Small nucleolar RNA SNORD113/SNORD114 family: a 78-nucleotide RNA sequence from Loxodonta africana.
The family's consensus secondary structure is taken from published work.
By type it is a C/D-box small nucleolar RNA.
Rfam links the family to the GO terms nucleolus and RNA processing.
The imprinted human domain at 14q32 contains two clusters of tandemly repeated small nucleolar RNAs named 14q(I) and 14q(II) snoRNAs. These two clusters are named SNORD113 and SNORD114 respectively in the HGNC approved gene symbol nomenclature. The snoRNAs found in both clusters are clearly related and are represented here by a single family.
The family has 59 seed sequences and 5,721 matches in Rfam 15.1.
A reference for the family is Cavaille et al. (2002), "Identification of tandemly-repeated C/D snoRNA genes at the imprinted human 14q32 domain reminiscent of those at the Prader-Willi/Angelman syndrome region", Hum Mol Genet.
The family is grouped with related families in Rfam's "SNORD74 clan".
RNA sequence: UGGAUCAAUGAUGGACACUGGUGGAGGAGUCUGAAUCAGCCUCUUUGAUUAAGAACUCUGUGUACCUCUGAGGUCCAU
Numbered sequence: 001u002g003g004a005u006c007a008a009u010g011a012u013g014g015a016c017a018c019u020g021g022u023g024g025a026g027g028a029g030u031c032u033g034a035a036u037c038a039g040c041c042u043c044u045u046u047g048a049u050u051a052a053g054a055a056c057u058c059u060g061u062g063u064a065c066c067u068c069u070g071a072g073g074u075c076c077a078u
Base pairs, nucleotide, nucleotide: 002076003075004074005073006072
Dot-bracket structure: .(((((.................................................................)))))..